[Rfam]
RNA sequence: GGGUGCGCCUUUAGGGGUGCAGGCAUGUUGCGCUGGUCGGGCCGCCAGCG
Dot-bracket structure: ....((((((....))))))..........(((((((......)))))))
A member of the RNA family "nhaA-I RNA" from Diploscapter pachys, 50 nucleotides long. From the family's description: Acidobacteria, Alphaproteobacteria, Betaproteobacteria and Gammaproteobacteria, Verrucomicrobia, cand. division NC10. It scores 46 bits against the family's covariance model.